[Rfam]
RNA sequence: AACCCAUGAUUUGCAAUGCUUAGUCCGUGUUUCGAAGUGUUUUGCACGCUGGUGAGUGAAAGCACACAUGAGGUU
Numbered sequence: 001a002a003c004c005c006a007u008g009a010u011u012u013g014c015a016a017u018g019c020u021u022a023g024u025c026c027g028u029g030u031u032u033c034g035a036a037g038u039g040u041u042u043u044g045c046a047c048g049c050u051g052g053u054g055a056g057u058g059a060a061a062g063c064a065c066a067c068a069u070g071a072g073g074u075u
Stems, first nucleotide, its partner, number of pairs: 001075004

The record is a 75-nucleotide sequence from Giardia duodenalis, which matches "Small nucleolar RNA GlsR9" in Rfam. NCBI's taxonomy places the organism under Eukaryota, Diplomonadida, Giardiinae, Giardia, Giardia duodenalis. Rfam classes the family as a C/D-box small nucleolar RNA. The family's consensus secondary structure was predicted with WAR.